RNA sequence: UUGGUCUUGCACACAACGGUAAGCCAGUGGUAAUGUCAGUGCAAGAAGGAUAUUACCAUAGCA
Numbered sequence: 001u002u003g004g005u006c007u008u009g010c011a012c013a014c015a016a017c018g019g020u021a022a023g024c025c026a027g028u029g030g031u032a033a034u035g036u037c038a039g040u041g042c043a044a045g046a047a048g049g050a051u052a053u054u055a056c057c058a059u060a061g062c063a
Stems, first nucleotide, its partner, number of pairs: 007044006028058002031055007
The family of this 63-nucleotide sequence from Alphacoronavirus porci is "Coronavirus 3' UTR pseudoknot". From the family's description: Coronaviruses are plus-strand RNA viruses with ~30kb genomes. The 3' UTR region of coronavirus genomes contains a conserved ~55nt pseudoknot structure which has been shown to be necessary for viral genome replication. A reference for the family is Williams et al. (1999), "A phylogenetically conserved hairpin-type 3' untranslated region pseudoknot functions in coronavirus RNA replication", J Virol. Gene Ontology term of the family: viral genome replication. It is one of the family's seed sequences.